[Rfam]
RNA sequence: UUGCACGUAGCACCCCGGGCUUAUCUGAAAUUACAGAUGAAGAAUGAAGCCCCAAUGCUCGUGCUAAAUCUCAGCCGUUCAGUGUUGCAGUUUCGCCUCAAUUUCAAACCCCCACGGCAUAUCUGUGUCAAAGUAAUGGCAACAUUU
Number, nucleotide and partner (000 for none) at each position: 001u000002u000003g064004c063005a062006c061007g060008u000009a000010g058011c057012a000013c000014c000015c000016c000017g052018g051019g050020c049021u048022u046023a045024u043025c042026u041027g000028a000029a000030a000031u000032u000033a000034c000035a000036g000037a000038u000039g000040a000041a026042g025043a024044a000045u023046g022047a000048a021049g020050c019051c018052c017053c000054a000055a000056u000057g011058c010059u000060c007061g006062u005063g004064c003065u000066a000067a000068a000069u000070c000071u000072c000073a000074g140075c139076c138077g137078u136079u135080c000081a000082g000083u130084g129085u000086u127087g126088c125089a124090g123091u000092u000093u000094c000095g118096c117097c116098u000099c000100a000101a000102u000103u000104u000105c000106a000107a000108a000109c000110c000111c000112c000113c000114a000115c000116g097117g096118c095119a000120u000121a000122u000123c090124u089125g088126u087127g086128u000129c084130a083131a000132a000133g000134u000135a079136a078137u077138g076139g075140c074141a000142a000143c000144a000145u000146u000147u000

The record is a 147-nucleotide sequence from Kingdonia uniflora, which matches "small nucleolar RNA snoR134" in Rfam.
Pairs were carried over by alignment from the consensus structure, which was predicted with RNAalifold.
On this family, see Chen and Wu, Nucleic Acids Res 2009: "Mining small RNA sequencing data: a new approach to identify small nucleolar RNAs in Arabidopsis".
A search with the family's covariance model found it, with a score of 115 bits.
By type it is an H/ACA-box small nucleolar RNA.